RNA sequence: AUAAUGUAAUCGCUUAAUCCGAGAGGAACGGGGGACCCAAUUUUUCAGGGGCGAAUCUCUUCUACACGGAAGGGUAGGGUUACUCUUUCGACCCAAGCCCGUCAGCUAACCUCGUAAGCGUUGAAGGGGAAAUAU
Numbered sequence: 001a002u003a004a005u006g007u008a009a010u011c012g013c014u015u016a017a018u019c020c021g022a023g024a025g026g027a028a029c030g031g032g033g034g035a036c037c038c039a040a041u042u043u044u045u046c047a048g049g050g051g052c053g054a055a056u057c058u059c060u061u062c063u064a065c066a067c068g069g070a071a072g073g074g075u076a077g078g079g080u081u082a083c084u085c086u087u088u089c090g091a092c093c094c095a096a097g098c099c100c101g102u103c104a105g106c107u108a109a110c111c112u113c114g115u116a117a118g119c120g121u122u123g124a125a126g127g128g129g130a131a132a133u134a135u
Stems, first nucleotide, its partner, number of pairs: 011120004018027003028115006038048001049100003057074004077094004

The family of this 135-nucleotide sequence from Koleobacter methoxysyntrophicus is "c-di-AMP riboswitch aptamer (ydaO/yuaA leader)". Rfam links the family to the GO terms regulation of gene expression and cyclic-di-AMP binding.